TPP riboswitch aptamer (THI element): a 96-nucleotide sequence from Dyella choica. The family's consensus secondary structure is taken from published work.
RNA sequence: GUUAGGAAGCGGGGGUGCCGACCACCUGUCGGCUGAGAGAGUCCCUUCGAACCUGAUCCGGUUAGCACCGGUGUAGGGAGCUUCGCCGUACGGUCA
Numbered sequence: 001g002u003u004a005g006g007a008a009g010c011g012g013g014g015g016u017g018c019c020g021a022c023c024a025c026c027u028g029u030c031g032g033c034u035g036a037g038a039g040a041g042u043c044c045c046u047u048c049g050a051a052c053c054u055g056a057u058c059c060g061g062u063u064a065g066c067a068c069c070g071g072u073g074u075a076g077g078g079a080g081c082u083u084c085g086c087c088g089u090a091c092g093g094u095c096a
Stems, first nucleotide, its partner, number of pairs: 006084005011046004016040001017033005052077004058071004